[Rfam]
RNA sequence: UAGUAUUACACCUCUUUUAGAAUUUGUCUAGCAGGUUUUCCCAUCCUCAGGGGAAGACACCCCU
Numbered sequence: 001u002a003g004u005a006u007u008a009c010a011c012c013u014c015u016u017u018u019a020g021a022a023u024u025u026g027u028c029u030a031g032c033a034g035g036u037u038u039u040c041c042c043a044u045c046c047u048c049a050g051g052g053g054a055a056g057a058c059a060c061c062c063c064u
Stems, first nucleotide, its partner, number of pairs: 034061003037056006044049001